[Rfam]
Nucleotides: 107
Base pairs, nucleotide, nucleotide: 020096021095022094023093026090029087030086031085033083034082035081036080038078039077040076
Number, partner (000 for none) and nucleotide at each position: 001000u002000u003000u004000u005000g006000a007000u008000u009000g010000g011000a012000c013000g014000a015000u016000g017000a018000c019000c020096g021095u022094u023093a024000c025000a026090u027000a028000u029087c030086a031085u032000g033083u034082u035081c036080u037000g038078a039077u040076u041000g042000g043000a044000u045000g046000u047000u048000g049000a050000u051000u052000u053000u054000a055000u056000g057000a058000a059000c060000g061000a062000u063000a064000a065000a066000a067000u068000g069000c070000a071000u072000a073000g074000u075000u076040a077039a078038u079000a080036a081035g082034a083033a084000c085031a086030u087029g088000a089000c090026a091000c092000g093023u094022g095021a096020c097000a098000c099000u100000u101000a102000a103000u104000a105000u106000c107000c